[Rfam]
The record is a 108-nucleotide RNA sequence from Triticum turgidum, which matches "Small nucleolar RNA Z118/Z121/Z120" in Rfam. The organism belongs to Triticum turgidum, within Eukaryota. For this family Rfam cites "The high diversity of snoRNAs in plants: identification and comparative study of 120 snoRNA genes from Oryza sativa" (Chen et al., Nucleic Acids Res, 2003). It is annotated as a C/D-box small nucleolar RNA.
RNA sequence: UGUUUGCUAUGAUGAGAUCACAAGGACGGUAUCUGAGAAAGGUGUCUCUUUAAGAAGUUACACUACCUGAUUAUAAAUCCUAAACUGAUCAAAUUUUCUGAGCAAAUG
Numbered sequence: 001u002g003u004u005u006g007c008u009a010u011g012a013u014g015a016g017a018u019c020a021c022a023a024g025g026a027c028g029g030u031a032u033c034u035g036a037g038a039a040a041g042g043u044g045u046c047u048c049u050u051u052a053a054g055a056a057g058u059u060a061c062a063c064u065a066c067c068u069g070a071u072u073a074u075a076a077a078u079c080c081u082a083a084a085c086u087g088a089u090c091a092a093a094u095u096u097u098c099u100g101a102g103c104a105a106a107u108g
Stems, first nucleotide, its partner, number of pairs: 001108007037066001039064001042061001